[Rfam]
RNA sequence: AAGACGUACAGGCCUAAUCGCCGGCCCCCGCGGUCGGCGAGCCGGGGACCCACCUCCUCGGGGUGAAUCCCGCCGCAGCCGCGGCGGGUAGGGAGAUCUUCCACGCUCCCGAACCCGUCAGCUAACCCGGUCCGCACGCAUCAGGAAGAAACU
Dot-bracket structure: ...........((....(((((((((.....)))))))))((((((....(........)(((.....((((((........))))))..((((............))))...))).........))))))..))..................